[Rfam]
RNA sequence: CUCUUAUCAAGAGAGGUGGAGGGAAAUGGCCCUUUGAAACCCAGCAACCUACAAAUAAUUUAAUUAUUAAAGUGUGGUGCUAAUUCCUGUAGAGUAAUCUACAAGAUAAGAA
Numbered sequence: 001c002u003c004u005u006a007u008c009a010a011g012a013g014a015g016g017u018g019g020a021g022g023g024a025a026a027u028g029g030c031c032c033u034u035u036g037a038a039a040c041c042c043a044g045c046a047a048c049c050u051a052c053a054a055a056u057a058a059u060u061u062a063a064u065u066a067u068u069a070a071a072g073u074g075u076g077g078u079g080c081u082a083a084u085u086c087c088u089g090u091a092g093a094g095u096a097a098u099c100u101a102c103a104a105g106a107u108a109a110g111a112a
Base pairs, nucleotide, nucleotide: 002111003110004109005108006107007106008105013042015041016040017039021032022031023030028087029086043081044080045079046078048077049076050074051073052072085104090101091100092099093098